[Rfam]
RNA sequence: UUACUGGACGCUUUAGCUAUUGAACUGUUCUGUCACUGUCUGACAGAGAACAAUUUGUUCUUUGACAGAGAGGGACAAAACAGUUCAAUAGCUAAAACGGGGUAAG
Numbered sequence: 001u002u003a004c005u006g007g008a009c010g011c012u013u014u015a016g017c018u019a020u021u022g023a024a025c026u027g028u029u030c031u032g033u034c035a036c037u038g039u040c041u042g043a044c045a046g047a048g049a050a051c052a053a054u055u056u057g058u059u060c061u062u063u064g065a066c067a068g069a070g071a072g073g074g075a076c077a078a079a080a081c082a083g084u085u086c087a088a089u090a091g092c093u094a095a096a097a098c099g100g101g102g103u104a105a106g
Stems, first nucleotide, its partner, number of pairs: 001105004012096017029069007049059004
Dot-bracket structure: ((((.......((((((((((((((((((((((((.............((((...))))...)))))))..........))))))))))))))))).....)))).
RNA: mir-8517 microRNA precursor family
Organism: Plutella xylostella